RNA sequence: AGAAGACCUCCCGUAAAUAAAACCUGAAAGGGCGAUCGCAGGCUGCAAAAAAGCGGAAUGACGUAGUUACGUCACCCCGC
Numbered sequence: 001a002g003a004a005g006a007c008c009u010c011c012c013g014u015a016a017a018u019a020a021a022a023c024c025u026g027a028a029a030g031g032g033c034g035a036u037c038g039c040a041g042g043c044u045g046c047a048a049a050a051a052a053g054c055g056g057a058a059u060g061a062c063g064u065a066g067u068u069a070c071g072u073c074a075c076c077c078c079g080c
Stems, first nucleotide, its partner, number of pairs: 005044001007042003023032003053080004059074004
About this RNA
This 80-nucleotide RNA sequence from Pseudomonas syringae belongs to the Rfam family "Pseudomonas sRNA P31". On this family, see Livny et al., Nucleic Acids Res 2006: "Identification of 17 Pseudomonas aeruginosa sRNAs and prediction of sRNA-encoding genes in 10 diverse pathogens using the bioinformatic tool sRNAPredict2". By type it is a small RNA. Lineage of the source: Bacteria > Pseudomonadota > Pseudomonadales > Pseudomonas syringae group genomosp. 1 > Pseudomonas syringae pv. syringae. The base pairs follow the family's consensus structure, which was predicted with CMfinder. The sequence is in the family's curated seed alignment.